[Rfam]
RNA: Glycine riboswitch aptamer
Organism: Mediterraneibacter torques
RNA sequence: CAGCAAUACUCAGGAGAGUCUCUUUAAAAAGAGCGCCGAAGGUGUAAGCGGUCAUGGAUGCAGUUACAUGCCGCGAGUCUCUCAGGCAAAAGGAUGGAGGAAUAAAG
Numbered sequence: 001c002a003g004c005a006a007u008a009c010u011c012a013g014g015a016g017a018g019u020c021u022c023u024u025u026a027a028a029a030a031g032a033g034c035g036c037c038g039a040a041g042g043u044g045u046a047a048g049c050g051g052u053c054a055u056g057g058a059u060g061c062a063g064u065u066a067c068a069u070g071c072c073g074c075g076a077g078u079c080u081c082u083c084a085g086g087c088a089a090a091a092g093g094a095u096g097g098a099g100g101a102a103u104a105a106a107g
Base pairs, nucleotide, nucleotide: 007101009099010098011097013095020033021032022031023030035087036086037085038083039082042081044079048074049073050072051071052070